Nucleotides: 190
Base pairs, nucleotide, nucleotide: 007184009182010181011180016086017085018084019083021081022080023079024078033070034069035068036067037066038065040063041062090121091120092119093118094117095116097114099112101110122148123147125145126144127143128142129141130140131139132138150175151174152173153172154171155170156169157168158167
Number, partner (000 for none) and nucleotide at each position: 001000a002000g003000a004000a005000a006000a007184g008000u009182c010181a011180g012000a013000g014000g015000a016086g017085c018084g019083c020000a021081u022080u023079u024078u025000c026000a027000g028000g029000a030000g031000u032000a033070u034069g035068g036067c037066a038065a039000g040063g041062u042000u043000a044000g045000g046000c047000g048000g049000c050000g051000g052000c053000c054000g055000c056000c057000a058000g059000a060000g061000a062041g063040c064000u065038u066037u067036g068035c069034c070033a071000g072000a073000a074000a075000g076000g077000g078024g079023a080022a081021a082000c083019g084018c085017g086016c087000c088000g089000a090121a091120a092119g093118c094117g095116g096000a097114g098000u099112u100000c101110c102000u103000g104000c105000c106000g107000a108000a109000a110101g111000a112099a113000c114097c115000g116095c117094c118093g119092c120091u121090u122148g123147g124000g125145u126144a127143u128142a129141c130140g131139g132138u133000g134000a135000a136000u137000a138132a139131c140130c141129g142128u143127a144126u145125a146000a147123c148122u149000g150175u151174c152173g153172c154171c155170u156169g157168u158167c159000a160000u161000g162000g163000g164000g165000a166000u167158g168157a169156u170155a171154g172153g173152c174151g175150g176000a177000g178000u179000g180011c181010u182009g183000c184007u185000g186000g187000u188000u189000c190000c
A member of the RNA family "Lysine riboswitch aptamer" from Guopingia tenuis, 190 nucleotides long. The source organism's lineage runs through Bacteria, Bacillati, Christensenellales, Christensenellaceae and Guopingia. A search with the family's covariance model found it, with a score of 91 bits.